[Rfam]
RNA sequence: GGCUUCAACAACCCCGCUGGUUGGGCGCGGAUUUUGUUGAGACGUAGCUCCGCUACGUCUAACGCGCAGUGAACCGGCUGGAGCC
Numbered sequence: 001g002g003c004u005u006c007a008a009c010a011a012c013c014c015c016g017c018u019g020g021u022u023g024g025g026c027g028c029g030g031a032u033u034u035u036g037u038u039g040a041g042a043c044g045u046a047g048c049u050c051c052g053c054u055a056c057g058u059c060u061a062a063c064g065c066g067c068a069g070u071g072a073a074c075c076g077g078c079u080g081g082a083g084c085c
Base pairs, nucleotide, nucleotide: 001085002084003083004082005081006080007079013071014069016078017077018076019075020074021073022072023070025067026066027065028064029063
Description
A member of the RNA family "nadA riboswitch", 85 nucleotides long. It is one of the family's seed sequences. The family's consensus secondary structure is taken from published work. A reference for the family is Chen et al. (2020), "Structural distinctions between NAD+ riboswitch domains 1 and 2 determine differential folding and ligand binding", Nucleic Acids Res.